[Rfam]
RNA sequence: GCAACCUCAGGCUCGCGCACGGCAACAUCGUGGUGUUCCGCUCGCUGCUGGGCAUCAGCUGGAUGUGGUUCUUCGGCGCGGUGUUCCUGAGCAACUUCCCUGCCUUUGCGCACGACGUGCUG
Numbered sequence: 001g002c003a004a005c006c007u008c009a010g011g012c013u014c015g016c017g018c019a020c021g022g023c024a025a026c027a028u029c030g031u032g033g034u035g036u037u038c039c040g041c042u043c044g045c046u047g048c049u050g051g052g053c054a055u056c057a058g059c060u061g062g063a064u065g066u067g068g069u070u071c072u073u074c075g076g077c078g079c080g081g082u083g084u085u086c087c088u089g090a091g092c093a094a095c096u097u098c099c100c101u102g103c104c105u106u107u108g109c110g111c112a113c114g115a116c117g118u119g120c121u122g
Stems, first nucleotide, its partner, number of pairs: 010049003014044002017041002021037004026032001051121005060112002063105001065103001067099002072094001077089002080087002
Shown here is a 122-nucleotide sequence from a Burkholderiaceae bacterium, a member of the family "Burkholderia RNA 11".
Rfam's curators write: Co-purified with Hfq, expression confirmed by Northern blot. Predicted target marZ. Overlaps coding sequence.
On this family, see Ramos et al., Genomics 2013: "Experimental identification of small non-coding regulatory RNAs in the opportunistic human pathogen Burkholderia cenocepacia J2315".
The organism belongs to Burkholderiaceae, within Bacteria.
It scores 85 bits against the family's covariance model.
By type it is a small RNA.